[Rfam]
Nucleotides: 307
Base pairs, nucleotide, nucleotide: 001040002039003038004023005022006021007020008019010017028037029036030035044306045305046304047303048302049301050300051299052298053297056294057293058291059290060289061287062286063285064284068281069280071278072277073276075275076274077273080266081265082264083263085261086260087259089258090257091256092255094254095253099252100251101250102249103248104247105246106245108240109239111238112237113236114235115234117231118230120228121227122226124225125224126223128168129167130166131165132163133162134161135160137158138157139156141154142153143152144151145150169174176221177220178219179218180217187212188211189210194205195204196203
Number, partner (000 for none) and nucleotide at each position: 001040g002039c003038c004023g005022a006021g007020c008019c009000c010017g011000g012000u013000a014000g015000c016000a017010u018000u019008g020007g021006c022005u023004u024000g025000u026000a027000a028037c029036c030035c031000g032000a033000g034000c035030g036029g037028g038003g039002g040001c041000a042000a043000c044306a045305g046304g047303g048302u049301g050300g051299u052298g053297g054000g055000a056294u057293g058291u059290u060289g061287u062286g063285u064284u065000c066000a067000g068281u069280c070000c071278g072277a073276u074000u075275g076274g077273g078000a079000u080266g081265g082264g083263u084000u085261c086260g087259g088000u089258c090257g091256u092255g093000c094254c095253a096000a097000a098000c099252u100251u101250g102249g103248c104247u105246u106245g107000c108240c109239c110000g111238u112237u113236c114235c115234a116000a117231g118230u119000a120228a121227g122226g123000c124225a125224g126223c127000u128168g129167a130166u131165c132163c133162a134161u135160g136000c137158g138157g139156c140000c141154c142153g143152g144151g145150c146000g147000a148000a149000a150145g151144c152143c153142c154141g155000a156139g157138c158137c159000a160135u161134a162133u163132g164000a165131g166130a167129u168128c169174c170000u171000a172000a173000a174169g175000c176221g177220g178219u179218g180217g181000a182000c183000a184000c185000c186000g187212c188211g189210u190000c191000a192000g193000g194205c195204u196203g197000g198000u199000u200000u201000c202000a203196c204195a205194g206000a207000g208000c209000a210189g211188c212187g213000a214000u215000u216000c217180c218179c219178a220177c221176c222000c223126g224125c225124u226122c227121u228120u229000g230118a231117c232000g233000g234115u235114g236113g237112a238111a239109g240108g241000a242000u243000u244000a245106c246105a247104a248103g249102c250101c251100g252099g253095u254094g255092u256091a257090c258089g259087c260086c261085g262000c263083a264082c265081u266080c267000g268000c269000c270000u271000u272000a273077c274076c275075c276073a277072u278071c279000u280069g281068a282000c283000c284064a285063a286062c287061a288000c289060u290059a291058a292000c293057c294056a295000g296000a297053c298052c299051a300050u301049c302048a303047c304046u305045u306044u307000u

The record is a 307-nucleotide RNA sequence from Ensete ventricosum, which matches "Plant signal recognition particle RNA" in Rfam. The match comes from Rfam's covariance-model search (218 bits). The literature on the family includes a 2002 paper in Curr Opin Struct Biol by Wild et al., "Towards the structure of the mammalian signal recognition particle". The base pairs follow the family's consensus structure, which is taken from published work.